[Rfam]
RNA sequence: GCAGUAUCUCGUUUGGCGAGGCUCCUGUGCAAAUACAGGUCGCCUCUCUGACGACAUCGAGAGAUGCCCGAGGUUAGGACUGGCUUUAUCGGACUGAGGUUCAGCCCAAAGUGACUUCUGAUUAUCCAGUCAGACCAGAUGUACAGUGCUAAAAACCUGACGUGGAGAUAGGCU
Numbered sequence: 001g002c003a004g005u006a007u008c009u010c011g012u013u014u015g016g017c018g019a020g021g022c023u024c025c026u027g028u029g030c031a032a033a034u035a036c037a038g039g040u041c042g043c044c045u046c047u048c049u050g051a052c053g054a055c056a057u058c059g060a061g062a063g064a065u066g067c068c069c070g071a072g073g074u075u076a077g078g079a080c081u082g083g084c085u086u087u088a089u090c091g092g093a094c095u096g097a098g099g100u101u102c103a104g105c106c107c108a109a110a111g112u113g114a115c116u117u118c119u120g121a122u123u124a125u126c127c128a129g130u131c132a133g134a135c136c137a138g139a140u141g142u143a144c145a146g147u148g149c150u151a152a153a154a155a156c157c158u159g160a161c162g163u164g165g166a167g168a169u170a171g172g173c174u
Base pairs, nucleotide, nucleotide: 005170006169007168008167009166010165011161012160013097015156020150021149022148025146026145027144028143029142030141031140039115040114041113042112043111047073048072049071055066056065057064058063082106083105084104085103088100089099090098117134118133119132120131121130